[Rfam]
c-di-AMP riboswitch aptamer (ydaO/yuaA leader): a 121-nucleotide RNA from Symplocastrum torsivum.

Nucleotides: 121
Stems, first nucleotide, its partner, number of pairs: 003023003024101006034042002043086003051062004065080004
Number, partner (000 for none) and nucleotide at each position: 001000c002000a003023u004022u005021u006000c007000a008000g009000a010000a011000c012000g013000c014000c015000a016000g017000a018000u019000a020000a021005a022004g023003a024101g025100c026099g027098g028097a029096g030000g031000a032000a033000c034042c035041a036000a037000a038000u039000c040000g041035u042034g043086g044085g045084g046000c047000u048000a049000a050000u051062c052061u053060u054059g055000u056000a057000a058000c059054c060053a061052a062051g063000a064000g065080a066079g067078a068077c069000a070000c071000c072000u073000u074000c075000c076000a077068g078067u079066c080065u081000u082000a083000g084045c085044c086043c087000g088000u089000c090000a091000g092000c093000u094000a095000a096029c097028u098027c099026c100025g101024u102000c103000g104000g105000c106000a107000a108000u109000g110000g111000g112000a113000g114000g115000a116000g117000c118000a119000c120000c121000a